[Rfam]
RNA sequence: CCAAAGGCUCUUUUAAGAGCCACCCACAUCUUCCUCCAGAGAGCUU
Numbered sequence: 001c002c003a004a005a006g007g008c009u010c011u012u013u014u015a016a017g018a019g020c021c022a023c024c025c026a027c028a029u030c031u032u033c034c035u036c037c038a039g040a041g042a043g044c045u046u
Stems, first nucleotide, its partner, number of pairs: 006021006
Description:
This 46-nucleotide RNA sequence from Hymenochirus boettgeri belongs to the Rfam family "Histone 3' UTR stem-loop". Taxonomically the source falls in Hymenochirus (Eukaryota, Craniata, Gnathostomata, Pipinae). The base pairs follow the family's consensus structure, which is taken from published work. The family's RNA type in Rfam is cis-regulatory element. The family has 50 seed sequences and 44,596 matches in Rfam 15.1.